[Rfam]
RNA sequence: AUGUUGAGGAUUGUAACAUGAAGCACUAGCCGUUGAAGAAAUUCCGGCUAGUGAUCAUGUUACGAUCCCCAUCAUU
Numbered sequence: 001a002u003g004u005u006g007a008g009g010a011u012u013g014u015a016a017c018a019u020g021a022a023g024c025a026c027u028a029g030c031c032g033u034u035g036a037a038g039a040a041a042u043u044c045c046g047g048c049u050a051g052u053g054a055u056c057a058u059g060u061u062a063c064g065a066u067c068c069c070c071a072u073c074a075u076u
Stems, first nucleotide, its partner, number of pairs: 001075003005071002008068001010066010022055001024053008
Dot-bracket structure: (((.((.(.((((((((((..(.((((((((..............)))))))).).)))))))))).).)).))).
The record is a 76-nucleotide RNA from Nicotiana attenuata, which matches "MIR6145 microRNA precursor family" in Rfam.
The match comes from Rfam's covariance-model search (54 bits).
The source organism's lineage runs through Eukaryota, Spermatophyta, eudicotyledons, Gunneridae and Nicotiana.